A member of the RNA family "raiA RNA" from Collinsella sp. An307, 257 nucleotides long.
RNA sequence: AACCCUCAGGCUGUGGUUGCGGGUGCACAUCCACCCUAGUCCAAGACAGACGCGGUCAAAGGGAUCCACGUAAGUCGCCGCGUGCGCGCGGGGACGAUCAUGGCGCGUCCUAGAGGUAAGCCGCACCGUCCGUCCUACCAACUUUGGGGCAAUACCGCCCCGCGGGCGAGCGGGUCAGUCGUGAAGGAUGCCGCGGCAUCCCGAGCAAACGCCCCGGUGCGCAAGUGUGGGGUCAAAGACCAGGUCAGCUGAGGGGC
Numbered sequence: 001a002a003c004c005c006u007c008a009g010g011c012u013g014u015g016g017u018u019g020c021g022g023g024u025g026c027a028c029a030u031c032c033a034c035c036c037u038a039g040u041c042c043a044a045g046a047c048a049g050a051c052g053c054g055g056u057c058a059a060a061g062g063g064a065u066c067c068a069c070g071u072a073a074g075u076c077g078c079c080g081c082g083u084g085c086g087c088g089c090g091g092g093g094a095c096g097a098u099c100a101u102g103g104c105g106c107g108u109c110c111u112a113g114a115g116g117u118a119a120g121c122c123g124c125a126c127c128g129u130c131c132g133u134c135c136u137a138c139c140a141a142c143u144u145u146g147g148g149g150c151a152a153u154a155c156c157g158c159c160c161c162g163c164g165g166g167c168g169a170g171c172g173g174g175u176c177a178g179u180c181g182u183g184a185a186g187g188a189u190g191c192c193g194c195g196g197c198a199u200c201c202c203g204a205g206c207a208a209a210c211g212c213c214c215c216g217g218u219g220c221g222c223a224a225g226u227g228u229g230g231g232g233u234c235a236a237a238g239a240c241c242a243g244g245u246c247a248g249c250u251g252a253g254g255g256g257c
Stems, first nucleotide, its partner, number of pairs: 003255007011248003014242005043228001045226001046056001049109006065103002070098001075093002078090001101235001122221005127168007172214004181206002188199003
The family's RNA type in Rfam is riboswitch. It scores 144 bits against the family's covariance model. NCBI's taxonomy places the organism under Bacteria, Bacillati, Coriobacteriia, Coriobacteriaceae, Collinsella.